[Rfam]
RNA: c-di-GMP-I riboswitch aptamer
Organism: Terrihalobacillus insolitus
RNA sequence: UUCGAACAAAGGCAAAACUGUUGAAAAACAGUGACGCAAAACUAUAGGGACUACGGCAUGAAUUUGCUAAGUCAGCCAGUUGCUCGG
Numbered sequence: 001u002u003c004g005a006a007c008a009a010a011g012g013c014a015a016a017a018c019u020g021u022u023g024a025a026a027a028a029c030a031g032u033g034a035c036g037c038a039a040a041a042c043u044a045u046a047g048g049g050a051c052u053a054c055g056g057c058a059u060g061a062a063u064u065u066g067c068u069a070a071g072u073c074a075g076c077c078a079g080u081u082g083c084u085c086g087g
Stems, first nucleotide, its partner, number of pairs: 012037002017032006040081004047077002049073003056067003